[Rfam]
RNA sequence: UGGCUCAUGGGGGAUGGAGUUCCCCUGAACCGCCAUCCUGGCUGAUGACUCCUACCGUGCA
Numbered sequence: 001u002g003g004c005u006c007a008u009g010g011g012g013g014a015u016g017g018a019g020u021u022c023c024c025c026u027g028a029a030c031c032g033c034c035a036u037c038c039u040g041g042c043u044g045a046u047g048a049c050u051c052c053u054a055c056c057g058u059g060c061a
Stems, first nucleotide, its partner, number of pairs: 010025004016052006032042003
Rfam assigns this 61-nucleotide sequence from Paraburkholderia sp. DHOC27 to the family "Fluoride riboswitch aptamer (crcB RNA motif)".
On this family, see Zhao et al., Nat Chem Biol 2017: "An excited state underlies gene regulation of a transcriptional riboswitch".
The family's consensus secondary structure is taken from published work.